RNA: mir-33 microRNA precursor family
Organism: Megalops atlanticus
RNA sequence: CUGUUGUGCAUUGUAGUUGCAUUGCAUGUGUCUGUGCUGGAUGCAAUGCUCCUGCAGUGCAACACAG
Dot-bracket structure: ((((.(((((((((((..(.(((((((.............))))))).)..)))))))))).)))))
Numbered sequence: 001c002u003g004u005u006g007u008g009c010a011u012u013g014u015a016g017u018u019g020c021a022u023u024g025c026a027u028g029u030g031u032c033u034g035u036g037c038u039g040g041a042u043g044c045a046a047u048g049c050u051c052c053u054g055c056a057g058u059g060c061a062a063c064a065c066a067g
Stems, first nucleotide, its partner, number of pairs: 001067004006063001007061010019049001021047007